[Rfam]
RNA sequence: UUCUUAUCAAGAGAGGUGGAGGGACUGGCCCUGCGAAGCCUCGGCAACGGACAAUUUGUACCGUGCCAAUUCCAGCAAGUAAUCUUGAGAGAUAAGAA
Number, nucleotide and partner (000 for none) at each position: 001u098002u097003c096004u095005u094006a093007u092008c091009a000010a000011g000012a000013g042014a041015g040016g039017u038018g000019g000020a000021g031022g030023g029024a000025c075026u074027g073028g072029c023030c022031c021032u000033g000034c000035g000036a000037a000038g017039c016040c015041u014042c013043g067044g066045c065046a064047a000048c063049g062050g000051a059052c058053a057054a000055u000056u000057u053058g052059u051060a000061c000062c049063g048064u046065g045066c044067c043068a000069a000070u000071u090072c028073c027074a026075g025076c087077a086078a085079g084080u000081a000082a000083u000084c079085u078086u077087g076088a000089g000090a071091g008092a007093u006094a005095a004096g003097a002098a001
RNA: SAM riboswitch aptamer (S box leader)